The record is a 313-nucleotide RNA from Protomyces lactucae-debilis, which matches "Nuclear RNase P" in Rfam.
A reference for the family is Brown (1999), "The Ribonuclease P Database", Nucleic Acids Res.
Taxonomically the source falls in Protomyces (Eukaryota, Opisthokonta, Dikarya, Taphrinomycotina).
RNA sequence: UCACUCUAAACGCCGCACUUCCUCGCUCUACACACGAACUACUAGCAUAUACGGCCGGUUUAUGAACGCGAGGGGGUAAGGUCUGAGAAUCACUCCCAACCAAGUAGCUCUAGCGGAGCCAGGCAUUAACAAAACGUGUCUGCAACUGUAUCAGAAAAUACCUGCUCCCAGUCGACAUGCUGUGUUUUACAUGGUGUGCUCCUGGGGCAGUUGGAAGGCGGUUGCUGGGAUGACUUGGAUGUAGUGCAAUGUGCGGCUUGUUUCCUUUGUUAUAGAAGGAAGCAAAACUCGAUUCAGACUAGUCUCUGAGUGG
Dot-bracket structure: ((((...(.(...[....[..((((...........((((.(...........)..))))........))))..........(((((.......((((........((((.....)))).((((((.........))))))(((((((.............(((...........................................)))........))))))))))).....................]....].(((((((((((......))))))))))).......))))).......).)..))))